RNA: Group II catalytic intron D1-D4-4
RNA sequence: UAACUGAUGGAAGUUCAGUCGGGGUAAAGACCAAGCUGCCCUGUAGCUAGUAGGCAACUCACGGCGAAAUCCGUGGGUUGAAGCCUUAUGAAAAACAAGCCGGAUGGUGCUAGACUAAGUAGUAGACACAGAAUAAAC
Numbered sequence: 001u002a003a004c005u006g007a008u009g010g011a012a013g014u015u016c017a018g019u020c021g022g023g024g025u026a027a028a029g030a031c032c033a034a035g036c037u038g039c040c041c042u043g044u045a046g047c048u049a050g051u052a053g054g055c056a057a058c059u060c061a062c063g064g065c066g067a068a069a070u071c072c073g074u075g076g077g078u079u080g081a082a083g084c085c086u087u088a089u090g091a092a093a094a095a096c097a098a099g100c101c102g103g104a105u106g107g108u109g110c111u112a113g114a115c116u117a118a119g120u121a122g123u124a125g126a127c128a129c130a131g132a133a134u135a136a137a138c
Stems, first nucleotide, its partner, number of pairs: 020043005050089005055080006064071001096113001098111003115131002